RNA: U7 small nuclear RNA
RNA sequence: AAGUGUUACAGCUCUUUUAGAAUUUGUCUGCGGGUUUCCUGGCUUAUGCUGGAACCCUU
Number, nucleotide and partner (000 for none) at each position: 001a000002a000003g000004u000005g000006u000007u000008a000009c000010a000011g000012c000013u000014c000015u000016u000017u000018u000019a000020g000021a000022a000023u000024u000025u000026g000027u000028c000029u000030g000031c000032g000033g056034g055035u054036u053037u000038c000039c052040u051041g050042g049043c048044u000045u000046a000047u000048g043049c042050u041051g040052g039053a036054a035055c034056c033057c000058u000059u000